[Rfam]
RNA: Connexin-43 internal ribosome entry site (IRES)
Organism: Mustela putorius
RNA sequence: AGCUUUUAUUAGGUUUCAGCAGUUAUCUUUCCUUAGGAAGAAGAGUGAGGAAGGGACCAAAGGGUGCAGCAGACUUUGAAACUUUGGAAAGUGUUGAGUACUCGAACUUACUUUUCCAUUUUACUUCAUCCUCCAAGGAGUGCAAUCACUUGGUGUGCCUUCUUCACUUCUUUUAAGCGAAAGAACAGCCAACAGGCAGC
Numbered sequence: 001a002g003c004u005u006u007u008a009u010u011a012g013g014u015u016u017c018a019g020c021a022g023u024u025a026u027c028u029u030u031c032c033u034u035a036g037g038a039a040g041a042a043g044a045g046u047g048a049g050g051a052a053g054g055g056a057c058c059a060a061a062g063g064g065u066g067c068a069g070c071a072g073a074c075u076u077u078g079a080a081a082c083u084u085u086g087g088a089a090a091g092u093g094u095u096g097a098g099u100a101c102u103c104g105a106a107c108u109u110a111c112u113u114u115u116c117c118a119u120u121u122u123a124c125u126u127c128a129u130c131c132u133c134c135a136a137g138g139a140g141u142g143c144a145a146u147c148a149c150u151u152g153g154u155g156u157g158c159c160u161u162c163u164u165c166a167c168u169u170c171u172u173u174u175a176a177g178c179g180a181a182a183g184a185a186c187a188g189c190c191a192a193c194a195g196g197c198a199g200c
Stems, first nucleotide, its partner, number of pairs: 002020003008014002029140003033136002036133002040127004047120002050117001052115003071094001073092004095110005149196004157189002162183003165179001167177003